[Rfam]
RNA sequence: UCAAGUUAGGGCAAAAUACGCCGAAUGAAAUAGCCGACGUUUAAACGCGUCGGUUAUUUUUUUUU
Numbered sequence: 001u002c003a004a005g006u007u008a009g010g011g012c013a014a015a016a017u018a019c020g021c022c023g024a025a026u027g028a029a030a031u032a033g034c035c036g037a038c039g040u041u042u043a044a045a046c047g048c049g050u051c052g053g054u055u056a057u058u059u060u061u062u063u064u065u
Stems, first nucleotide, its partner, number of pairs: 011021002031056009
RNA: Enterobacterial sRNA STnc240
Organism: Yersinia pestis